RNA: Pseudomon-groES RNA
RNA sequence: GUAACGGUCACCGCAAGGUUUUUGGCGUAAAUCGCCAAACAGUCUUUUGCGGUUCGCUCGUCGAGCCGCAACCGGCAACGCCGGAUGUGCUAGCAGGCCGGUAUUGAUACUGGC
Numbered sequence: 001g002u003a004a005c006g007g008u009c010a011c012c013g014c015a016a017g018g019u020u021u022u023u024g025g026c027g028u029a030a031a032u033c034g035c036c037a038a039a040c041a042g043u044c045u046u047u048u049g050c051g052g053u054u055c056g057c058u059c060g061u062c063g064a065g066c067c068g069c070a071a072c073c074g075g076c077a078a079c080g081c082c083g084g085a086u087g088u089g090c091u092a093g094c095a096g097g098c099c100g101g102u103a104u105u106g107a108u109a110c111u112g113g114c
Base pairs, nucleotide, nucleotide: 010019011018012017021039022038023037024036025035026034048070049069050068051067052066053065054064055063056062072084073083074082075081097114098113099112100111101110102109